[Rfam]
Nucleotides: 562
Stems, first nucleotide, its partner, number of pairs: 007557010022542001023506002027477002029474007036466002038172002046107003049062003068101007077089003112121003122140007142169003145165006176207001177205005187194002217224002227462001228255005238246002258459004266289007296401003301394003310388001312386001316382001318380005324372003330345005348352001354366003407431007438453005493500002516528004
Number, partner (000 for none) and nucleotide at each position: 001000u002000a003000c004000u005000a006000a007557g008556a009555g010554c011553a012552c013551a014550u015549g016548g017000u018000g019000g020000a021000u022542g023506c024505c025000u026000u027477g028476g029474c030473g031472c032471c033470a034469g035468a036466a037465g038172g039171c040000g041000a042000u043000g044000a045000a046107g047106g048105a049062c050061g051060u052000g053000g054000u055000a056000a057000g058000c059000u060051g061050c062049g063000a064000u065000a066000a067000g068101c069100u070099u071098c072097g073096g074095g075000g076000a077089g078088c079087c080000g081000c082000a083000a084000a085000c086000a087079g088078g089077c090000g091000u092000u093000g094000a095074u096073c097072c098071g099070g100069a101068g102000a103000u104000c105048u106047c107046c108000g109000a110000a111000u112121g113120g114119g115000g116000c117000a118000a119114c120113c121112c122140a123139g124138u125137a126136a127135g128134g129000u130000c131000a132000a133000c134128c135127c136126u137125u138124a139123c140122u141000a142169c143168c144167c145165c146164c147163c148162g149161c150160u151000g152000a153000a154000u155000c156000c157000a158000u159000a160150g161149g162148c163147g164146g165145g166000c167144g168143g169142g170000a171039g172038c173000u174000a175000a176207c177205c178204c179203a180202g181201g182000g183000a184000a185000g186000u187194g188193a189000a190000a191000c192000a193188u194187c195000u196000c197000a198000g199000u200000a201181c202180c203179u204178g205177g206000a207176g208000g209000a210000a211000a212000a213000g214000a215000a216000a217224u218223c219000a220000a221000c222000a223218g224217a225000g226000a227462u228255u229254c230253c231252g232251g233000c234000a235000g236000u237000a238246g239245c240000g241000g242000c243000g244000a245239g246238c247000g248000a249000a250000c251232c252231c253230g254229g255228a256000a257000g258459a259458g260457c261456c262000c263000a264000a265000a266289c267288c268287g269286g270285c271284a272283g273000c274000g275000a276000g277000u278000a279000a280000u281000c282000c283272c284271u285270g286269c287268c288267g289266g290000g291000g292000u293000u294000g295000u296401a297400g298399g299000a300000c301394g302393g303392c304000a305000a306000c307000a308000u309000g310388g311000a312386a313000c314000g315000a316382u317000a318380g319379c320378g321377c322376u323000a324372g325371u326370c327000g328000a329000a330345c331344g332343g333342u334341c335000u336000g337000g338000a339000a340000u341334g342333g343332c344331c345330g346000g347000c348352c349000a350000c351000a352348g353000a354366c355365g356364g357000u358000g359000a360000g361000a362000g363000c364356c365355c366354g367000g368000u369000a370326g371325g372324c373000g374000a375000a376322a377321g378320c379319g380318c381000g382316a383000c384000a385000a386312u387000c388310c389000c390000u391000a392303g393302c394301c395000u396000g397000u398000u399298c400297c401296u402000g403000a404000g405000u406000a407431g408430c409429g410428c411427g412426g413425a414000u415000c416000a417000c418000g419000u420000g421000a422000a423000a424000c425413u426412c427411c428410g429409c430408g431407u432000g433000a434000a435000g436000c437000u438453g439452g440451g441450g442449a443000g444000a445000c446000c447000a448000c449442u450441c451440u452439c453438c454000a455000a456261g457260g458259c459258u460000a461000a462227a463000u464000a465037c466036u467000c468035u469034c470033u471032g472031g473030c474029g475000a476028c477027c478000g479000a480000u481000a482000g483000u484000g485000c486000a487000c488000u489000a490000g491000u492000a493500c494499c495000g496000u497000g498000a499494g500493g501000g502000a503000a504000a505024g506023g507000u508000g509000a510000a511000a512000a513000g514000c515000a516528c517527c518526c519525c520000u521000g522000c523000g524000a525519g526518g527517g528516g529000a530000g531000u532000g533000a534000a535000a536000u537000a538000g539000u540000a541000c542022c543000u544000g545000a546000a547000a548016c549015c550014g551013u552012g553011u554010g555009u556008u557007u558000a559000c560000a561000a562000a
Rfam assigns this 562-nucleotide part of an RNA from an uncultured bacterium to the family "Bacterial large subunit ribosomal RNA". The sequence is in the family's curated seed alignment.